[Rfam]
RNA sequence: GCGUAGGAGCACUAGGGUUCCGGUCGGGGGUGUCGCCCUUUGAUGUCUGGUCCGAGAGUGCUCCGGUCUCGCAAGAGACUCCACGGAGGGACAAAAGCCCGGGAGAA
Numbered sequence: 001g002c003g004u005a006g007g008a009g010c011a012c013u014a015g016g017g018u019u020c021c022g023g024u025c026g027g028g029g030g031u032g033u034c035g036c037c038c039u040u041u042g043a044u045g046u047c048u049g050g051u052c053c054g055a056g057a058g059u060g061c062u063c064c065g066g067u068c069u070c071g072c073a074a075g076a077g078a079c080u081c082c083a084c085g086g087a088g089g090g091a092c093a094a095a096a097g098c099c100c101g102g103g104a105g106a107a
Stems, first nucleotide, its partner, number of pairs: 007063006015053002020050002022047001023044008065080006082102001084105001088100003